Background:
mir-395 microRNA precursor family: a 111-nucleotide RNA from Durio zibethinus. About the family: mir-395 was identified in both Arabidopsis thaliana and Oryza sativa computationally and was later experimentally verified. mir-395 is thought to target mRNAs coding for ATP sulphurylases. The mature sequence is excised from the 3' arm of the hairpin. For this family Rfam cites "Computational Identification of Plant MicroRNAs and Their Targets, Including a Stress-Induced miRNA" (Jones-Rhoades and Bartel, Mol Cell, 2004). Gene Ontology terms of the family: RISC complex and miRNA-mediated post-transcriptional gene silencing.

RNA sequence: CUGUCCUCUGGAGUUCCCCUGAUCACUUCAUUGGGGGCUGAUCUUCUUGGACCCUUAAUAAUAGGAAGGUCCCUGACCUACUGAAGUGUUUGGGGGAACUCCGGCUGGCGC
Numbered sequence: 001c002u003g004u005c006c007u008c009u010g011g012a013g014u015u016c017c018c019c020u021g022a023u024c025a026c027u028u029c030a031u032u033g034g035g036g037g038c039u040g041a042u043c044u045u046c047u048u049g050g051a052c053c054c055u056u057a058a059u060a061a062u063a064g065g066a067a068g069g070u071c072c073c074u075g076a077c078c079u080a081c082u083g084a085a086g087u088g089u090u091u092g093g094g095g096g097a098a099c100u101c102c103g104g105c106u107g108g109c110g111c
Stems, first nucleotide, its partner, number of pairs: 005107001008104002011101010022091001024088007032080004